Mason-Pfizer monkey virus packaging signal: a 293-nucleotide RNA sequence from Heterocephalus glaber.
The match comes from Rfam's covariance-model search (93 bits).
Rfam 15.1 lists 2,921 matches to the family in 53 species.
NCBI's taxonomy places the organism under Eukaryota, Eumetazoa, Bilateria, Boreoeutheria, Heterocephalus.
This family represents a group of sequences that are related to the Mason-Pfizer monkey virus (MPMV) packaging signal. The packaging signal is located in the 5' UTR and is required for specific RNA encapsidation.
It is annotated as a cis-regulatory element.

RNA sequence: UGGCGCCCAACGUGGGGCCAGAGAACGGGGGAUCCAGUGAAGGACGCUGCUCAGGGGCCCUAAGAUUAAGAUUGAGGAGGAAAGAGCAUACUCGACACGGGAGAGGCUUGCAAUUGACGUGGACCUGCCGUCUUUUUGCACCUCGGUAAGUUGAGCAGCGAUUAUGGGACAGGGCAUUAGUCAGCACGAAUUGUUUGUGCAAGGUCUCAAGAAGACAUUACAGGCACGAGGGGUAAAGGUUACAGUCAAACAGUUGUUAAGAUUUUUUGAUUAUAUUAAAGAUCUCUGUCCCU
Number, nucleotide and partner (000 for none) at each position: 001u000002g000003g000004c000005g000006c031007c030008c029009a000010a000011c000012g026013u025014g000015g000016g000017g000018c000019c000020a000021g000022a000023g000024a000025a013026c012027g000028g000029g008030g007031g006032a000033u000034c000035c000036a067037g066038u065039g000040a000041a000042g000043g000044a000045c000046g000047c000048u000049g000050c000051u000052c000053a000054g000055g000056g000057g000058c000059c000060c000061u000062a000063a000064g000065a038066u037067u036068a000069a000070g000071a000072u000073u000074g000075a000076g000077g000078a000079g000080g000081a000082a000083a000084g000085a000086g000087c000088a000089u000090a000091c000092u000093c000094g000095a000096c000097a000098c000099g000100g000101g000102a000103g000104a000105g143106g142107c000108u000109u000110g000111c138112a136113a135114u000115u000116g132117a131118c130119g129120u000121g000122g000123a000124c000125c000126u000127g000128c000129c119130g118131u117132c116133u000134u000135u113136u112137u000138g111139c000140a000141c000142c106143u105144c000145g000146g000147u000148a000149a000150g000151u172152u171153g170154a000155g000156c168157a000158g000159c166160g165161a000162u000163u000164a000165u160166g159167g000168g156169a000170c153171a152172g151173g000174g000175c000176a000177u220178u000179a218180g216181u215182c214183a000184g000185c000186a000187c000188g000189a000190a000191u000192u000193g000194u000195u000196u000197g000198u000199g000200c000201a000202a000203g000204g000205u000206c000207u000208c000209a000210a000211g000212a000213a000214g182215a181216c180217a000218u179219u000220a177221c000222a000223g000224g000225c000226a000227c269228g268229a267230g266231g265232g264233g263234u262235a000236a000237a255238g254239g000240u252241u000242a000243c000244a000245g000246u000247c000248a000249a000250a000251c000252a240253g000254u238255u237256g000257u000258u000259a000260a000261g000262a234263u233264u232265u231266u230267u229268u228269g227270a000271u000272u000273a000274u000275a000276u000277u000278a293279a000280a000281g290282a289283u288284c000285u000286c000287u000288g283289u282290c281291c000292c000293u278